[Rfam]
RNA: Ruegeria cis52 sRNA
RNA sequence: UCCGCAGCGCGUGGCGCAUGACCACCUGGCGGAAGCCCACCCCCUUCAGCCGCGCGGUGCGGAUGUAUUGCUGGGUCAUCACCUCCGUCAUCGAGGCGCGGGUCAUGCGGGCGAUAUAGCCGAUGCCGUAGAGCGCGAUGGUGAUCACCGGCAGGGCGAAGUUCCAGAAGGUGAUCUGG
Numbered sequence: 001u002c003c004g005c006a007g008c009g010c011g012u013g014g015c016g017c018a019u020g021a022c023c024a025c026c027u028g029g030c031g032g033a034a035g036c037c038c039a040c041c042c043c044c045u046u047c048a049g050c051c052g053c054g055c056g057g058u059g060c061g062g063a064u065g066u067a068u069u070g071c072u073g074g075g076u077c078a079u080c081a082c083c084u085c086c087g088u089c090a091u092c093g094a095g096g097c098g099c100g101g102g103u104c105a106u107g108c109g110g111g112c113g114a115u116a117u118a119g120c121c122g123a124u125g126c127c128g129u130a131g132a133g134c135g136c137g138a139u140g141g142u143g144a145u146c147a148c149c150g151g152c153a154g155g156g157c158g159a160a161g162u163u164c165c166a167g168a169a170g171g172u173g174a175u176c177u178g179g
Stems, first nucleotide, its partner, number of pairs: 005140002008137005017131001019128002023125002031120001038113001040111003046105001048103001050101005055075001059071004082096004145179003151172002154165003